RNA sequence: ACUGAGGCUAGAGUCUUGCUCGCAUUGCCCUGGUGUGCUGAAGUCCUCGGAGAGCAGCCCCUGGCCUUAUUCACUGGCUGUGGCCCCAUGGCCGAGCCAGUCACCAGGCCAAGGACAGGG
Numbered sequence: 001a002c003u004g005a006g007g008c009u010a011g012a013g014u015c016u017u018g019c020u021c022g023c024a025u026u027g028c029c030c031u032g033g034u035g036u037g038c039u040g041a042a043g044u045c046c047u048c049g050g051a052g053a054g055c056a057g058c059c060c061c062u063g064g065c066c067u068u069a070u071u072c073a074c075u076g077g078c079u080g081u082g083g084c085c086c087c088a089u090g091g092c093c094g095a096g097c098c099a100g101u102c103a104c105c106a107g108g109c110c111a112a113g114g115a116c117a118g119g120g
Stems, first nucleotide, its partner, number of pairs: 002050005007044003012039002015037001017035004023027001062111006073101005079095001082093003
Description:
This 120-nucleotide RNA from Erinaceus europaeus belongs to the Rfam family "Small nucleolar RNA SNORA3/SNORA45 family". Pairs were carried over by alignment from the consensus structure, which was predicted with RNAalifold. On this family, see Huttenhofer et al., EMBO J 2001: "RNomics: an experimental approach that identifies 201 candidates for novel, small, non-messenger RNAs in mouse". A search with the family's covariance model found it, with a score of 64 bits. Gene Ontology terms of the family: RNA processing and nucleolus.